[Rfam]
Shown here is a 52-nucleotide RNA from Chelatococcus asaccharovorans, a member of the family "ffh sRNA".
On this family, see Meyer et al., BMC Genomics 2009: "Identification of candidate structured RNAs in the marine organism 'Candidatus Pelagibacter ubique'".
It is annotated as a small RNA.
A search with the family's covariance model found it, with a score of 58 bits.

RNA sequence: GAGACCGGAGGUCAACGUCCGACAGCGCUGUGCGCCCUCGGGCGUGUUCGCG
Numbered sequence: 001g002a003g004a005c006c007g008g009a010g011g012u013c014a015a016c017g018u019c020c021g022a023c024a025g026c027g028c029u030g031u032g033c034g035c036c037c038u039c040g041g042g043c044g045u046g047u048u049c050g051c052g
Base pairs, nucleotide, nucleotide: 016044017043018042019041020040021039022038025035026034027033028032